Notes
The record is a 72-nucleotide sequence from Gloeobacter kilaueensis, which matches "tRNA" in Rfam. A search with the family's covariance model found it, with a score of 50 bits. By type it is a transfer RNA.
[Rfam]
RNA sequence: GGCCCCGUAGUGCAUGGGUUCGCAUCGGUCUCUUUCAAAGACUGGAAACGGGUUCGAGUCCCGUCGGGGCUA
Number, nucleotide and partner (000 for none) at each position: 001g071002g070003c069004c068005c067006c066007g065008u000009a000010g025011u024012g023013c022014a000015u000016g000017g000018g000019u000020u000021c000022g013023c012024a011025u010026c000027g043028g042029u041030c040031u039032c000033u000034u000035u000036c000037a000038a000039a031040g030041a029042c028043u027044g000045g000046a000047a000048a064049c063050g062051g061052g060053u000054u000055c000056g000057a000058g000059u000060c052061c051062c050063g049064u048065c007066g006067g005068g004069g003070c002071u001072a000

Annotation:
The source organism's lineage runs through Bacteria, Bacillati, Cyanobacteriota, Gloeobacterales and Gloeobacter kilaueensis.